[Rfam]
This 69-nucleotide sequence from Nyctiprogne leucopyga belongs to the Rfam family "Small nucleolar RNA SNORD58". On this family, see Kiss-Laszlo et al., Cell 1996: "Site-specific ribose methylation of preribosomal RNA: a novel function for small nucleolar RNAs". Gene Ontology terms of the family: nucleolus and RNA processing. NCBI's taxonomy places the organism under Eukaryota, Metazoa, Bilateria, Saurischia, Nyctiprogne. The family's RNA type in Rfam is C/D-box small nucleolar RNA. Rfam's curators write: snoRNA U58 is found in introns 1, 3 and 6 of the ribosomal protein RPL17 gene in humans.
RNA sequence: UUGUGGUGAUGACUUUCUUAGGACACCUUUGGAUUUAAUUGUGAAAAGAAAGCAUAAUUUCUGAGUAGC
Numbered sequence: 001u002u003g004u005g006g007u008g009a010u011g012a013c014u015u016u017c018u019u020a021g022g023a024c025a026c027c028u029u030u031g032g033a034u035u036u037a038a039u040u041g042u043g044a045a046a047a048g049a050a051a052g053c054a055u056a057a058u059u060u061c062u063g064a065g066u067a068g069c
Stems, first nucleotide, its partner, number of pairs: 001068004